[Rfam]
RNA: Archaeal large subunit ribosomal RNA, nucleotides 586 to 684
RNA sequence: GGUAUGGCUCUAAAGGGAUGAAGGGUCCGAAGGAAACCUGGGCGACCAGGAAGUACGAGGAUUCCCAACCGGAGUCAUACCUUCCGUCUUGAAACACGG
Numbered sequence: 001g002g003u004a005u006g007g008c009u010c011u012a013a014a015g016g017g018a019u020g021a022a023g024g025g026u027c028c029g030a031a032g033g034a035a036a037c038c039u040g041g042g043c044g045a046c047c048a049g050g051a052a053g054u055a056c057g058a059g060g061a062u063u064c065c066c067a068a069c070c071g072g073a074g075u076c077a078u079a080c081c082u083u084c085c086g087u088c089u090u091g092a093a094a095c096a097c098g099g
Stems, first nucleotide, its partner, number of pairs: 001081010015070002023065002025062004032056001037050005084099004